[Rfam]
This 267-nucleotide RNA from Ktedonobacter racemifer belongs to the Rfam family "T-box leader". NCBI's taxonomy places the organism under Bacteria, Chloroflexota, Ktedonobacteria, Ktedonobacter, Ktedonobacter racemifer. Uncharged tRNA acts as the effector for transcription antitermination of genes in the T-box leader family.
RNA sequence: AACAAGACGAAGAACGAGGAAAGUAAGAGACAUCGCGAUUACAGAGAGCUGGCGGUCGCUGCGAGCCAGCAUCAAGGUGUCGUCUGAAGCUCCCUUGUGAGUCGUAGUGGUGAAAGCUUCUCCUGGACAGAGGGGUGAGUAGUUGCUGCCGGUUGCCCCCGUUAGCGGGCCGGGUACAUCUAUACCCUUAAAGGCCGUCGUCGCGAGGCGACGGUGAAGCAUGGUGGUACCGCGAAAGUGGCCCUGAGCGCACUUUUCGCCCUGCGU
Numbered sequence: 001a002a003c004a005a006g007a008c009g010a011a012g013a014a015c016g017a018g019g020a021a022a023g024u025a026a027g028a029g030a031c032a033u034c035g036c037g038a039u040u041a042c043a044g045a046g047a048g049c050u051g052g053c054g055g056u057c058g059c060u061g062c063g064a065g066c067c068a069g070c071a072u073c074a075a076g077g078u079g080u081c082g083u084c085u086g087a088a089g090c091u092c093c094c095u096u097g098u099g100a101g102u103c104g105u106a107g108u109g110g111u112g113a114a115a116g117c118u119u120c121u122c123c124u125g126g127a128c129a130g131a132g133g134g135g136u137g138a139g140u141a142g143u144u145g146c147u148g149c150c151g152g153u154u155g156c157c158c159c160c161g162u163u164a165g166c167g168g169g170c171c172g173g174g175u176a177c178a179u180c181u182a183u184a185c186c187c188u189u190a191a192a193g194g195c196c197g198u199c200g201u202c203g204c205g206a207g208g209c210g211a212c213g214g215u216g217a218a219g220c221a222u223g224g225u226g227g228u229a230c231c232g233c234g235a236a237a238g239u240g241g242c243c244c245u246g247a248g249c250g251c252a253c254u255u256u257u258c259g260c261c262c263u264g265c266g267u
Base pairs, nucleotide, nucleotide: 007102008101015097016096017095018094026085027084028083029081030080031079037073038072039071048070049069050068051067052066053065105148106147107146108145109144110143111142150161151160152159194215195214196213197212198211199210200209223262224261232260233259234258235257236256237255238254

A search with the family's covariance model found it, with a score of 95 bits.